[Rfam]
Annotation:
A member of the RNA family "Clostridiales-1 RNA" from Eubacterium sp. CAG:38, 168 nucleotides long. A search with the family's covariance model found it, with a score of 146 bits. Taxonomically the source falls in Eubacterium (Bacteria, Bacillota, Clostridia, Eubacteriaceae).
Nucleotides: 168
Stems, first nucleotide, its partner, number of pairs: 001168007010068004016062006026051005031044005072124002075121005082114004090107007127158007138148004
Number, partner (000 for none) and nucleotide at each position: 001168u002167g003166a004165u005164a006163c007162c008000a009000g010068g011067g012066u013065c014000a015000a016062a017061a018060g019059g020058u021057c022000u023000a024000a025000a026051c027050c028049c029048a030047c031044a032043u033042g034041a035040g036000c037000u038000u039000g040035c041034u042033c043032a044031u045000a046000a047030g048029u049028g050027g051026g052000u053000g054000a055000a056000u057021g058020a059019c060018c061017u062016u063000g064000u065013g066012a067011c068010c069000c070000g071000c072124c073123c074000u075121a076120a077119u078118a079117u080000g081000a082114g083113c084112a085111u086000a087000a088000a089000a090107g091106c092105a093104g094103g095102a096101c097000g098000a099000u100000a101096g102095u103094u104093c105092u106091g107090c108000g109000a110000u111085a112084u113083g114082c115000g116000a117079a118078u119077a120076u121075u122000u123073g124072g125000c126000a127158g128157g129156a130155u131154u132153g133152u134000g135000g136000g137000a138148g139147u140146g141145c142000g143000c144000a145141g146140c147139a148138c149000g150000g151000a152133a153132c154131a155130a156129u157128c158127c159000g160000c161000a162007g163006g164005u165004a166003u167002c168001a